[Rfam]
RNA sequence: GUUGCAGAGCCUAUUUGGCAUUCUGUCCACCUCCAUUGAUCUUUAUUCUUUUCGACUGGAGGUGGCCAGCGUGCCAAACUGGCUCUGUAAA
Number, nucleotide and partner (000 for none) at each position: 001g000002u000003u000004g000005c000006a000007g000008a000009g000010c000011c081012u000013a000014u000015u077016u076017g075018g074019c073020a072021u000022u000023c000024u068025g067026u000027c065028c064029a063030c062031c061032u060033c059034c058035a000036u000037u000038g000039a000040u000041c000042u000043u000044u000045a000046u000047u000048c000049u000050u000051u000052u000053c000054g000055a000056c000057u000058g034059g033060a032061g031062g030063u029064g028065g027066c000067c025068a024069g000070c000071g000072u020073g019074c018075c017076a016077a015078a000079c000080u000081g011082g000083c000084u000085c000086u000087g000088u000089a000090a000091a000
Shown here is a 91-nucleotide RNA from Ziziphus jujuba, a member of the family "MIR394 microRNA precursor family". Gene Ontology terms of the family: miRNA-mediated post-transcriptional gene silencing and RISC complex. The organism belongs to Ziziphus jujuba, within Eukaryota. The base pairs follow the family's consensus structure, which was predicted with WAR.